[Rfam]
A member of the RNA family "Small nucleolar RNA SNORA4" from Erinaceus europaeus, 144 nucleotides long. Rfam classes the family as an H/ACA-box small nucleolar RNA. The family has 7 seed sequences and 290 matches in Rfam 15.1. From the family's description: ACA4 is a member of the H/ACA class of snoRNA that guide the sites of modification of uridines to pseudouridines. The base pairs follow the family's consensus structure, which was predicted with PFOLD.
RNA sequence: CUACCAAAUGUCAACUUCGGGGAAAGGUUUCACAGUAACCUUAACCUGCUUGAGCUGUUUGGAAGAGCAAAGAGAAGACCACACUCCACAGUGGGCUAUAUAAUACUGAACAUUAUAGUCUGCUACUAUAUUGUGGCCUACAUU
Dot-bracket structure: ...(((((...((.(((.(..(...((((.......)))).....)..)..))).))))))).............((.(((((......(((((((((((.............))))))))))).......))))).)).....